Rfam assigns this 224-nucleotide RNA sequence to the family "Group II catalytic intron D1-D4-6". It is one of the family's seed sequences. Rfam links the family to the GO term Group II intron splicing. Group II introns are found in rRNA, tRNA and mRNA of organelles in fungi, plants and protists, and also in mRNA in bacteria. Rfam 15.1 lists 1,617 matches to the family in 661 species. A reference for the family is Lehmann and Schmidt (2003), "Group II introns: structure and catalytic versatility of large natural ribozymes", Crit Rev Biochem Mol Biol.
RNA sequence: CAAGUCCUACCCCGGGAGGAGUCCGCCCCCGGGAAGUCCAGUCCUUGCGUCGCGCGGGUGACUUGCGCGGCGAAGCGUAGGAGGGCGGAUGAGCGGGCCGGGCAAUCGAACCUCGAAAAUGCUGUCACCGUGUGCGCCAACGCACUCCUGUAAUGCGGAUGGCCAUGACGAUGCGCCGACAAGUGCGGACGUGGAAGCAUCGUGCACACCGGGGUCUAAGAGUU
Number, nucleotide and partner (000 for none) at each position: 001c000002a000003a000004g000005u000006c000007c000008u000009a000010c000011c033012c032013c031014g030015g028016g027017a000018g000019g192020a000021g190022u000023c000024c000025g000026c000027c016028c015029c000030c014031g013032g012033g011034a000035a000036g086037u085038c084039c083040a000041g000042u000043c081044c080045u079046u077047g076048c072049g071050u070051c069052g068053c067054g066055c065056g063057g062058g000059u000060g000061a000062c057063u056064u000065g055066c054067g053068c052069g051070g050071c049072g048073a000074a000075g000076c047077g046078u000079a045080g044081g043082a000083g039084g038085g037086c036087g000088g000089a000090u000091g000092a000093g000094c000095g000096g000097g000098c000099c000100g000101g000102g000103c000104a000105a000106u000107c000108g216109a000110a215111c214112c213113u212114c211115g210116a000117a000118a000119a000120u000121g000122c000123u000124g000125u000126c000127a000128c000129c000130g209131u208132g207133u206134g205135c204136g163137c162138c161139a000140a000141c157142g156143c155144a154145c000146u000147c000148c000149u000150g000151u000152a000153a000154u144155g143156c142157g141158g000159a000160u000161g138162g137163c136164c000165a000166u000167g000168a203169c202170g201171a200172u199173g198174c197175g000176c194177c193178g000179a000180c000181a000182a000183g000184u000185g000186c000187g000188g000189a000190c021191g000192u019193g177194g176195a000196a000197g174198c173199a172200u171201c170202g169203u168204g135205c134206a133207c132208a131209c130210c115211g114212g113213g112214g111215u110216c108217u000218a000219a000220g000221a000222g000223u000224u000